A member of the RNA family "Small nucleolar RNA SNORA47" from Geotrypetes seraphini, 133 nucleotides long.
A reference for the family is Huttenhofer et al. (2001), "RNomics: an experimental approach that identifies 201 candidates for novel, small, non-messenger RNAs in mouse", EMBO J.
The base pairs follow the family's consensus structure, which was predicted with WAR.
A search with the family's covariance model found it, with a score of 79 bits.
[Rfam]
RNA sequence: UGGAGGAUUGAGAAGGUAAAGCAGUUGUAUUCUGUACUGCUUUUUUCCGGUUAUAUCCUCCAACAUUAAGGAAUGGAAAAGCAGUCGGGGUUCUUCCUUUUUAGUGAGGAAACGCUACUGCAAUUUACAUUUA
Numbered sequence: 001u002g003g004a005g006g007a008u009u010g011a012g013a014a015g016g017u018a019a020a021g022c023a024g025u026u027g028u029a030u031u032c033u034g035u036a037c038u039g040c041u042u043u044u045u046u047c048c049g050g051u052u053a054u055a056u057c058c059u060c061c062a063a064c065a066u067u068a069a070g071g072a073a074u075g076g077a078a079a080a081g082c083a084g085u086c087g088g089g090g091u092u093c094u095u096c097c098u099u100u101u102u103a104g105u106g107a108g109g110a111a112a113c114g115c116u117a118c119u120g121c122a123a124u125u126u127a128c129a130u131u132u133a
Stems, first nucleotide, its partner, number of pairs: 002061005015048002018045001019042007080125002086120001088118001090116001096109004